[Rfam]
RNA sequence: CUGCGCCCGUGGAGGGUAAAGCAUAUUCCGGUAAAAUGUUUUGCGGGCGACGGGGAUAUGUUCAGCCUGGUCUGGAAAUAAGCAUCGCUUAUUUCUUCAAAGCGUUUU
Numbered sequence: 001c002u003g004c005g006c007c008c009g010u011g012g013a014g015g016g017u018a019a020a021g022c023a024u025a026u027u028c029c030g031g032u033a034a035a036a037u038g039u040u041u042u043g044c045g046g047g048c049g050a051c052g053g054g055g056a057u058a059u060g061u062u063c064a065g066c067c068u069g070g071u072c073u074g075g076a077a078a079u080a081a082g083c084a085u086c087g088c089u090u091a092u093u094u095c096u097u098c099a100a101a102g103c104g105u106u107u108u
Base pairs, nucleotide, nucleotide: 005048006047007046008045009044010043011042014068015067017065021061022060023059024058025057026056027055028054037052038051039050040049076094077093078092079091080090081089082088083087

A member of the RNA family "RT-5 RNA" from Acetatifactor muris, 108 nucleotides long.
A search with the family's covariance model found it, with a score of 61 bits.
It is annotated as a small RNA.